[Rfam]
Nucleotides: 076
Stems, first nucleotide, its partner, number of pairs: 002037002004033001007030007038072013
Number, partner (000 for none) and nucleotide at each position: 001000c002037g003036g004033g005000a006000a007030c008029c009028g010027g011026c012025u013024c014000u015000a016000c017000c018000c019000c020000c021000c022000c023000g024013g025012a026011g027010c028009c029008g030007g031000a032000c033004c034000u035000g036003u037002c038072g039071g040070c041069g042068a043067c044066c045065c046064g047063c048062g049061c050060u051000c052000u053000c054000c055000c056000c057000c058000c059000c060050g061049g062048c063047g064046c065045g066044g067043g068042u069041c070040g071039c072038c073000c074000c075000c076000u
Shown here is a 76-nucleotide RNA from Streptosporangiaceae bacterium NEAU-GS5, a member of the family "6C RNA". Rfam links the family to the GO term sporulation. The source organism's lineage runs through Bacteria, Bacillati, Actinomycetes, Streptosporangiales and Streptosporangiaceae. Pairs were carried over by alignment from the consensus structure, which is taken from published work.